[Rfam]
RNA: Small nucleolar RNA snoR104
Organism: Hibiscus trionum
RNA sequence: GGGGAACAUCACAGAGAUGAGAUGUUACCUGAUACAAUCUUCCUACAUUAAACUCUGUAUUUUCCUGCUUGUAGUACUUGAGCAAGUUUCUGCAAGUCUCAUAUCUCCAGAUACAUGA
Numbered sequence: 001g002g003g004g005a006a007c008a009u010c011a012c013a014g015a016g017a018u019g020a021g022a023u024g025u026u027a028c029c030u031g032a033u034a035c036a037a038u039c040u041u042c043c044u045a046c047a048u049u050a051a052a053c054u055c056u057g058u059a060u061u062u063u064c065c066u067g068c069u070u071g072u073a074g075u076a077c078u079u080g081a082g083c084a085a086g087u088u089u090c091u092g093c094a095a096g097u098c099u100c101a102u103a104u105c106u107c108c109a110g111a112u113a114c115a116u117g118a
Stems, first nucleotide, its partner, number of pairs: 001030003005026006054111003067097008076087003